[Rfam]
RNA: Group II catalytic intron D1-D4-1
Organism: Gracilibacillus halophilus
RNA sequence: UAAGCGAAUGUGUGAACGUUCGUUGAACGAUCAGAAGUCAGCAGAAGCCAUAGUACCUGUUGAUUCUAGAUGAACAGGGAAGGGC
Numbered sequence: 001u002a003a004g005c006g007a008a009u010g011u012g013u014g015a016a017c018g019u020u021c022g023u024u025g026a027a028c029g030a031u032c033a034g035a036a037g038u039c040a041g042c043a044g045a046a047g048c049c050a051u052a053g054u055a056c057c058u059g060u061u062g063a064u065u066c067u068a069g070a071u072g073a074a075c076a077g078g079g080a081a082g083g084g085c
Stems, first nucleotide, its partner, number of pairs: 001025002004023008038045002047085003056078006